[Rfam]
RNA sequence: UCGAAGUUUCAUCUACAAAUGGGAUAAGAUUUUUGUAUUAGGUAUACGAAUCGUUGAAACAAGUGCAAUACCCCAGUCUGCUUAGAAAGACAUGGGGAUUGUACUU
Numbered sequence: 001u002c003g004a005a006g007u008u009u010c011a012u013c014u015a016c017a018a019a020u021g022g023g024a025u026a027a028g029a030u031u032u033u034u035g036u037a038u039u040a041g042g043u044a045u046a047c048g049a050a051u052c053g054u055u056g057a058a059a060c061a062a063g064u065g066c067a068a069u070a071c072c073c074c075a076g077u078c079u080g081c082u083u084a085g086a087a088a089g090a091c092a093u094g095g096g097g098a099u100u101g102u103a104c105u106u
Stems, first nucleotide, its partner, number of pairs: 008024002010021003061106009071096003076091004
Plastid-psbA-1 3UTR RNA: a 106-nucleotide RNA from Musa balbisiana. The organism belongs to Musa, within Eukaryota. The match comes from Rfam's covariance-model search (60 bits). Pairs were carried over by alignment from the consensus structure, which was predicted with LocARNA.